[Rfam]
RNA sequence: AGCACUAUAUUUAAAACUGUGGGUGGGAAUUUUCCUCAUUGUUGGUUAUGCUGUAGUGUGAAAGAAUUCCUGGCCUUUUUUCUUGCACAGCUGACUUACACCAUUCUGCUGUUCCUAUAUGGAAUUAAGGAGCAUGU
Numbered sequence: 001a002g003c004a005c006u007a008u009a010u011u012u013a014a015a016a017c018u019g020u021g022g023g024u025g026g027g028a029a030u031u032u033u034c035c036u037c038a039u040u041g042u043u044g045g046u047u048a049u050g051c052u053g054u055a056g057u058g059u060g061a062a063a064g065a066a067u068u069c070c071u072g073g074c075c076u077u078u079u080u081u082c083u084u085g086c087a088c089a090g091c092u093g094a095c096u097u098a099c100a101c102c103a104u105u106c107u108g109c110u111g112u113u114c115c116u117a118u119a120u121g122g123a124a125u126u127a128a129g130g131a132g133c134a135u136g137u
Base pairs, nucleotide, nucleotide: 002059003058004057005056006055007054008053009052014047015046017044022040023039024038025037026036027035067132068131069130070129071128072126073125076124077123078122079121081119085115087113088111089110090109091108093106094105
RNA: Small nucleolar RNA SNORA46